The record is a 120-nucleotide RNA sequence from Paenibacillus sp. J2TS4, which matches "SAM riboswitch aptamer (S box leader)" in Rfam.
[Rfam]
RNA sequence: UUCUUAUCCAGAGAGGCGGAGGGACAGGCCCUAUGAAGCCCGGCAACCGAUCGCGCGUUCAUCGCGCGGUGUCUAUGGUGCCAAUUCCUUCAGAAUCGAGACGAUUCUGGCAGAUGAGAA
Numbered sequence: 001u002u003c004u005u006a007u008c009c010a011g012a013g014a015g016g017c018g019g020a021g022g023g024a025c026a027g028g029c030c031c032u033a034u035g036a037a038g039c040c041c042g043g044c045a046a047c048c049g050a051u052c053g054c055g056c057g058u059u060c061a062u063c064g065c066g067c068g069g070u071g072u073c074u075a076u077g078g079u080g081c082c083a084a085u086u087c088c089u090u091c092a093g094a095a096u097c098g099a100g101a102c103g104a105u106u107c108u109g110g111c112a113g114a115u116g117a118g119a120a
Stems, first nucleotide, its partner, number of pairs: 001120008013041001015040003021031003026089003042082004047078002049074001052071003086112001091109006